RNA sequence: UCCGAAUUCUAUAUAUGAAUGAAAGCUACGUUUCGGCAAAUAUCUAUAGGAGGUUUUGAAAAGAAAGGAGCAAUAAUCAUUUUCUUGUUCUAUCAAGAGGGUGCUAUUGCUCCUUU
Numbered sequence: 001u002c003c004g005a006a007u008u009c010u011a012u013a014u015a016u017g018a019a020u021g022a023a024a025g026c027u028a029c030g031u032u033u034c035g036g037c038a039a040a041u042a043u044c045u046a047u048a049g050g051a052g053g054u055u056u057u058g059a060a061a062a063g064a065a066a067g068g069a070g071c072a073a074u075a076a077u078c079a080u081u082u083u084c085u086u087g088u089u090c091u092a093u094c095a096a097g098a099g100g101g102u103g104c105u106a107u108u109g110c111u112c113c114u115u116u
Base pairs, nucleotide, nucleotide: 008023010021011020012019064116065115066114067113068112069111070110071109072108073107074106075105078103079102080101082099083098084097085096086095
The family of this 116-nucleotide sequence from Nicotiana attenuata is "Plastid-psbA-1 3UTR RNA". The organism belongs to Nicotiana, within Eukaryota. Its Rfam clan is "Plastid-psbA 3UTR RNA clan". The base pairs follow the family's consensus structure, which was predicted with LocARNA.